[Rfam]
RNA sequence: GCCUCUAUAGCUCAGUGGUAGAGCGUUACACUUGUACUCUGCCUGAGCGAUGUAAAGGCCUGUGGUUCGACUCCGCAUGGAGGCU
Numbered sequence: 001g002c003c004u005c006u007a008u009a010g011c012u013c014a015g016u017g018g019u020a021g022a023g024c025g026u027u028a029c030a031c032u033u034g035u036a037c038u039c040u041g042c043c044u045g046a047g048c049g050a051u052g053u054a055a056a057g058g059c060c061u062g063u064g065g066u067u068c069g070a071c072u073c074c075g076c077a078u079g080g081a082g083g084c085u
Base pairs, nucleotide, nucleotide: 001084002083003082004081005080006079007078010024011023012022013021026055027054028053029052030051061077062076063075064074065073
Shown here is an 85-nucleotide RNA sequence from Ophiocordyceps camponoti-rufipedis, a member of the family "tRNA". It scores 57 bits against the family's covariance model. Rfam links the family to the GO term triplet codon-amino acid adaptor activity. The family's RNA type in Rfam is transfer RNA. Transfer RNA (tRNA) molecules are approximately 80 nucleotides in length.